Overview:
The record is a 90-nucleotide RNA sequence from candidate division Zixibacteria bacterium RBG-1, which matches "Selenocysteine transfer RNA" in Rfam. The family's consensus secondary structure is taken from published work. The literature on the family includes a 2000 paper in FEBS Lett by Mizutani and Goto, "Eukaryotic selenocysteine tRNA has the 9/4 secondary structure".

[Rfam]
RNA sequence: GGAAGUGGAUAGGAUCUGGUGGUCCUUGCGGACUUCAAAUCCGUCAAACCCAAUUUUAUUGGGUUGGCAGGUUCGAUUCCUGCCCCUUCC
Dot-bracket structure: (((((.((..((((((....)))))).(((((.......)))))..(((((.........)))))..((((.......)))))).)))))